The family of this 300-nucleotide RNA sequence from Zostera marina is "Plant signal recognition particle RNA". It scores 162 bits against the family's covariance model. Clan: SRP clan. Rfam links the family to the GO terms SRP-dependent cotranslational protein targeting to membrane, signal sequence recognition and signal recognition particle, endoplasmic reticulum targeting.
RNA sequence: GCUGAGCUCGGUAACGUGGGCUUGUCACCAAGUGUAGCAUUAAGGUAUUUGAAUAAUUUGGUAUUGAAUUCAAGGUUGACAUUAUGAGCUAGCUUUGAUUUGCCCGUUUCCAAGUUGGGCAGUGGAUGCUAUGUUUCAGGCUAACGCUUGAAUCAUAUUCUCCCUAAACUUGAGGGUAAUGCGUGAGGCUGGUUUCACAGAGCAGCGAUUACCUCUCACUCUCAACGGCGGAAGGAUUACAAGCCAUUUUCUCAUAUUAUCAAUUACCCUUGGAAUCCCCCAAAUUCAACAAAUAUUUUU
Numbered sequence: 001g002c003u004g005a006g007c008u009c010g011g012u013a014a015c016g017u018g019g020g021c022u023u024g025u026c027a028c029c030a031a032g033u034g035u036a037g038c039a040u041u042a043a044g045g046u047a048u049u050u051g052a053a054u055a056a057u058u059u060g061g062u063a064u065u066g067a068a069u070u071c072a073a074g075g076u077u078g079a080c081a082u083u084a085u086g087a088g089c090u091a092g093c094u095u096u097g098a099u100u101u102g103c104c105c106g107u108u109u110c111c112a113a114g115u116u117g118g119g120c121a122g123u124g125g126a127u128g129c130u131a132u133g134u135u136u137c138a139g140g141c142u143a144a145c146g147c148u149u150g151a152a153u154c155a156u157a158u159u160c161u162c163c164c165u166a167a168a169c170u171u172g173a174g175g176g177u178a179a180u181g182c183g184u185g186a187g188g189c190u191g192g193u194u195u196c197a198c199a200g201a202g203c204a205g206c207g208a209u210u211a212c213c214u215c216u217c218a219c220u221c222u223c224a225a226c227g228g229c230g231g232a233a234g235g236a237u238u239a240c241a242a243g244c245c246a247u248u249u250u251c252u253c254a255u256a257u258u259a260u261c262a263a264u265u266a267c268c269c270u271u272g273g274a275a276u277c278c279c280c281c282a283a284a285u286u287c288a289a290c291a292a293a294u295a296u297u298u299u300u
Stems, first nucleotide, its partner, number of pairs: 001038003004023007029034001042299010055286001057284003060280002065275001069274007078261002081258001083256006091248001096246002099243004104235002108233004114226006121220003124163003128159001130157004135152007172215004182207003189200003